[Rfam]
RNA sequence: UUUGGGAAAUGAUGAUUAAUUCUUCAGAUAUGUCCUAAACGGGCUUUUAAAAGAAUGGUGACAAAUUGCACGUCAGUCUGAUCCCCUA
Number, nucleotide and partner (000 for none) at each position: 001u088002u000003u000004g085005g084006g083007a082008a000009a000010u000011g000012a000013u000014g000015a000016u000017u000018a000019a000020u000021u000022c000023u000024u000025c000026a000027g000028a000029u000030a000031u000032g000033u000034c000035c000036u000037a000038a000039a000040c000041g000042g000043g000044c000045u000046u000047u000048u000049a000050a000051a000052a000053g000054a000055a000056u000057g000058g000059u000060g000061a000062c000063a000064a000065a000066u000067u000068g000069c000070a000071c000072g000073u000074c000075a000076g000077u000078c000079u000080g000081a000082u007083c006084c005085c004086c000087u000088a001
Rfam assigns this 88-nucleotide RNA sequence from Triticum aestivum to the family "Small nucleolar RNA Z122".
A reference for the family is Chen et al. (2003), "The high diversity of snoRNAs in plants: identification and comparative study of 120 snoRNA genes from Oryza sativa", Nucleic Acids Res.
Rfam links the family to the GO terms RNA processing and nucleolus.
Rfam classes the family as a C/D-box small nucleolar RNA.
The base pairs follow the family's consensus structure, which was predicted with PFOLD.